[Rfam]
Nucleotides: 576
Base pairs, nucleotide, nucleotide: 007571008570009569010568011567012566013565014564015563016562022556023520024519027492028491029489030488031487032486033485034484035483036482037481038150039149046107047106048105049062050061051060068101069100070099071098072097073096074095077089078088079087112121113120114119122140123139124138125137126136127135128134142147155183156182157181158180159179165172166171195202196201205478206233207232208231209230210229216224217223236475237474238473239472244281245280246279247278248277249276250275251274252273253272254271288415289414290413293409294408295407296406297405320402321401322400323399324398325397326396329393330392331391332390336385337384338383342358344357345356346355347354361365367379368378369377421445422444423443424442425441426440427439428438452469453468454467455466456465507514508513530542531541532540533539
Number, partner (000 for none) and nucleotide at each position: 001000c002000g003000c004000u005000a006000a007571g008570g009569g010568c011567a012566c013565a014564c015563g016562g017000a018000g019000g020000a021000u022556g023520c024519c025000u026000a027492g028491g029489c030488a031487a032486c033485a034484a035483g036482a037481g038150c039149c040000g041000a042000u043000g044000a045000a046107g047106g048105a049062c050061g051060u052000g053000a054000u055000a056000a057000g058000c059000u060051g061050c062049g063000a064000a065000a066000a067000g068101c069100u070099u071098a072097g073096g074095g075000g076000a077089g078088c079087u080000g081000c082000a083000a084000a085000g086000a087079a088078g089077c090000u091000u092000u093000g094000a095074u096073c097072c098071u099070a100069a101068g102000a103000u104000g105048u106047c107046c108000g109000a110000a111000u112121g113120g114119g115000a116000g117000a118000a119114c120113c121112u122140a123139a124138a125137u126136a127135c128134c129000u130000g131000g132000a133000g134128g135127g136126u137125a138124u139123u140122u141000a142147c143000g144000a145000a146000a147142g148000a149039g150038g151000u152000a153000a154000g155183c156182g157181g158180g159179u160000g161000a162000a163000c164000u165172g166171a167000a168000a169000c170000a171166u172165c173000u174000a175000a176000g177000u178000a179159a180158c181157c182156c183155g184000a185000g186000g187000a188000a189000g190000a191000g192000a193000a194000a195202g196201u197000a198000a199000a200000a201196a202195c203000g204000a205478u206233u207232c208231u209230c210229u211000g212000a213000g214000u215000a216224g217223c218000g219000g220000c221000g222000a223217g224216c225000g226000a227000a228000a229210g230209g231208g232207g233206a234000a235000g236475a237474g238473c239472c240000u241000a242000a243000a244281c245280c246279a247278c248277a249276u250275a251274a252273g253272u254271g255000u256000a257000u258000a259000a260000g261000c262000g263000a264000g265000c266000a267000g268000c269000g270000u271254u272253g273252c274251u275250u276249g277248u278247g279246u280245g281244g282000g283000g284000u285000a286000g287000u288415g289414g290413g291000a292000g293409u294408u295407u296406a297405a298000u299000g300000a301000c302000g303000g304000a305000u306000a307000g308000c309000u310000c311000u312000g313000a314000a315000g316000u317000c318000a319000a320402u321401a322400u323399a324398u325397a326396c327000g328000a329393a330392a331391u332390a333000g334000a335000a336385u337384u338383a339000g340000a341000a342358u343000g344357u345356a346355u347354c348000u349000g350000g351000g352000a353000a354347g355346g356345u357344a358342a359000a360000c361365c362000a363000u364000a365361g366000a367379a368378g369377g370000u371000g372000a373000a374000a375000g376000u377369c378368c379367u380000g381000u382000a383338u384337g385336a386000g387000u388000a389000a390332u391331a392330u393329u394000g395000a396326g397325u398324g399323u400322a401321u402320a403000u404000a405297u406296u407295a408294a409293a410000u411000a412000u413290c414289c415288c416000g417000a418000g419000u420000a421445g422444c423443a424442u425441c426440g427439a428438g429000c430000a431000c432000g433000a434000g435000g436000a437000a438428u439427u440426c441425g442424g443423u444422g445421u446000g447000a448000a449000u450000c451000a452469g453468c454467g455466a456465g457000g458000a459000c460000c461000a462000u463000a464000u465456c466455u467454c468453g469452u470000a471000a472239g473238g474237c475236u476000a477000a478205a479000u480000a481037c482036u483035c484034u485033u486032g487031u488030u489029g490000a491028c492027c493000g494000a495000u496000a497000g498000a499000g500000g501000a502000g503000a504000g505000u506000a507514c508513c509000g510000u511000g512000a513508g514507g515000g516000a517000a518000a519024g520023g521000u522000g523000a524000a525000a526000a527000g528000a529000a530542c531541c532540c533539u534000g535000u536000g537000u538000a539533a540532g541531g542530g543000a544000g545000u546000g547000a548000a549000a550000u551000a552000g553000a554000a555000c556022c557000u558000g559000a560000a561000a562016c563015c564014g565013u566012g567011u568010g569009c570008u571007u572000a573000c574000a575000a576000a

This 576-nucleotide part of an RNA from Sebaldella termitidis belongs to the Rfam family "Bacterial large subunit ribosomal RNA". The match comes from Rfam's covariance-model search (2720 bits). The source organism's lineage runs through Bacteria, Fusobacteriia, Fusobacteriales, Leptotrichiaceae and Sebaldella termitidis.